[Rfam]
RNA sequence: UUUGGGAAAUGCUGAGACCGUUAAACCAUGUUUGUUCAAAGGCUCUAUUUGAUUAUCUAGACUGUGCUGAACAAUCUUUUGCACAUCAGUCUGAUUCCAAA
Numbered sequence: 001u002u003u004g005g006g007a008a009a010u011g012c013u014g015a016g017a018c019c020g021u022u023a024a025a026c027c028a029u030g031u032u033u034g035u036u037c038a039a040a041g042g043c044u045c046u047a048u049u050u051g052a053u054u055a056u057c058u059a060g061a062c063u064g065u066g067c068u069g070a071a072c073a074a075u076c077u078u079u080u081g082c083a084c085a086u087c088a089g090u091c092u093g094a095u096u097c098c099a100a101a
Stems, first nucleotide, its partner, number of pairs: 001101007
Annotation
The family of this 101-nucleotide RNA from Coffea canephora is "Small nucleolar RNA Z122". The match comes from Rfam's covariance-model search (42 bits). It is annotated as a C/D-box small nucleolar RNA. The organism belongs to Coffea, within Eukaryota.